[Rfam]
Overview:
This 78-nucleotide RNA sequence from Cuscuta australis belongs to the Rfam family "small nucleolar RNA snoR117". The organism belongs to Cuscuta sect. Cleistogrammica, within Eukaryota. The family's RNA type in Rfam is C/D-box small nucleolar RNA. Rfam links the family to the GO terms RNA processing and nucleolus.
RNA sequence: UGCCGGUGAUGCAUAAUUGAAGAAUUGUCCGUACCAUCUGAAUCCUUUGAUGCAUAAACACUUCACGCCCUGAGGCAC
Number, nucleotide and partner (000 for none) at each position: 001u077002g076003c075004c074005g000006g000007u000008g000009a000010u000011g000012c000013a000014u000015a000016a000017u000018u000019g000020a000021a000022g000023a000024a000025u000026u000027g000028u000029c000030c000031g000032u000033a000034c000035c000036a000037u000038c000039u000040g000041a000042a000043u000044c000045c000046u000047u000048u000049g000050a000051u000052g000053c000054a000055u000056a000057a000058a000059c000060a000061c000062u000063u000064c000065a000066c000067g000068c000069c000070c000071u000072g000073a000074g004075g003076c002077a001078c000